[Rfam]
RNA sequence: GGUAGUAGCAAAUACUUUGGAGAGGCCCCGAAGGACCGAUGUGGAGAAGGGUUUCGUGUGAACAGCCGUUGAACACGAGUCAGUCGAUCCUAAACCCGACGAGAAGUCGGUAUCACUGUAGGAGAGUUAUAAAAGUAAUUUACAAAUGUAUAUCUCCAUUGUGAUAAGGUGAAAGGGAAUCUGGUUUCAAUUCCAGAACCUGGUGACGGAACCGCUCUUUUUGAUAUGCUCCUUGCGGGUAUAUCAUCGGGGUAACCCAAAAAGACCUGGAGAUGCCAUCAAAACUCCCAGGAAGAGUUUUCUUUUCUGCAUGAGUAACUAAGCGCCCUGGAAUUCCUUCACGGAGAGAUAGGGUCACGGUUACGAAGAGCGCCGCAGUUAUUGUGGCGUCUGGGAUGUUUUGCUGGACCUUGAAAAUCCAGGAGAGGGAUACGGGAGUGUCGCACCAGUUCGUACCCAUAUCCGCAGCAGGUCUCCGAGGUGAGAAGCCUCUGGUCGA
Numbered sequence: 001g002g003u004a005g006u007a008g009c010a011a012a013u014a015c016u017u018u019g020g021a022g023a024g025g026c027c028c029c030g031a032a033g034g035a036c037c038g039a040u041g042u043g044g045a046g047a048a049g050g051g052u053u054u055c056g057u058g059u060g061a062a063c064a065g066c067c068g069u070u071g072a073a074c075a076c077g078a079g080u081c082a083g084u085c086g087a088u089c090c091u092a093a094a095c096c097c098g099a100c101g102a103g104a105a106g107u108c109g110g111u112a113u114c115a116c117u118g119u120a121g122g123a124g125a126g127u128u129a130u131a132a133a134a135g136u137a138a139u140u141u142a143c144a145a146a147u148g149u150a151u152a153u154c155u156c157c158a159u160u161g162u163g164a165u166a167a168g169g170u171g172a173a174a175g176g177g178a179a180u181c182u183g184g185u186u187u188c189a190a191u192u193c194c195a196g197a198a199c200c201u202g203g204u205g206a207c208g209g210a211a212c213c214g215c216u217c218u219u220u221u222u223g224a225u226a227u228g229c230u231c232c233u234u235g236c237g238g239g240u241a242u243a244u245c246a247u248c249g250g251g252g253u254a255a256c257c258c259a260a261a262a263a264g265a266c267c268u269g270g271a272g273a274u275g276c277c278a279u280c281a282a283a284a285c286u287c288c289c290a291g292g293a294a295g296a297g298u299u300u301u302c303u304u305u306u307c308u309g310c311a312u313g314a315g316u317a318a319c320u321a322a323g324c325g326c327c328c329u330g331g332a333a334u335u336c337c338u339u340c341a342c343g344g345a346g347a348g349a350u351a352g353g354g355u356c357a358c359g360g361u362u363a364c365g366a367a368g369a370g371c372g373c374c375g376c377a378g379u380u381a382u383u384g385u386g387g388c389g390u391c392u393g394g395g396a397u398g399u400u401u402u403g404c405u406g407g408a409c410c411u412u413g414a415a416a417a418u419c420c421a422g423g424a425g426a427g428g429g430a431u432a433c434g435g436g437a438g439u440g441u442c443g444c445a446c447c448a449g450u451u452c453g454u455a456c457c458c459a460u461a462u463c464c465g466c467a468g469c470a471g472g473u474c475u476c477c478g479a480g481g482u483g484a485g486a487a488g489c490c491u492c493u494g495g496u497c498g499a
Base pairs, nucleotide, nucleotide: 015033016032017031018030019029020028034497035496036495037494043477044476045475046474049457050456054078055077056076057075058074059073063071064070085453086452087451089176090175094170095169100109101108102107119163120162180197181196182195183194184193200449201448202447203446234445235444236443237442238441239439240438249258250257251256266423267422268421269420270419271418276407277406278405280403281402282401283400284399285398288394289393290392292310294308295307296306315364316363317362318361319360325355326354327353328352329351330350334346335345336344337343371389372388373387374386375385376384377383463472464471479491480490481489482488
Dot-bracket structure: ..............((((((.......))))))((((.....((((..((...((((((...((.....)).))))))......(((.((...((....(((....))).........((.........................................)).....))....))...(((((........)))))..((((..............................(((((((........(((....))).......((((((....(((.((((((..(((.(.(((.........))).)....(((((.....((((((...((((.....))))...))))))....)))))......(((((((.....)))))))..)))...)))))).)))..........))))))..............)).))))))))).)))..)).....((......)).)))).((((.....))))..))))..
Background
Rfam assigns this 499-nucleotide part of an RNA from Folsomia candida to the family "Eukaryotic large subunit ribosomal RNA". It scores 3097 bits against the family's covariance model. The family's consensus secondary structure is taken from published work. Its Rfam clan is "LSU clan".